Rfam assigns this 88-nucleotide RNA from Eubacterium sp. CAG:161 to the family "GA-cis RNA". The family's RNA type in Rfam is small RNA.
RNA sequence: UAGAGGAGAAAACCAAAUGAACGAAGUUCAUUUAUAAGGACGUUUUCGACGAAAUGCCGCUGACCGAAGGGAGGGGGCAAUACACAAU
Dot-bracket structure: .......((((((..((((((.....)))))).........))))))........(((.((..((...))..)).)))..........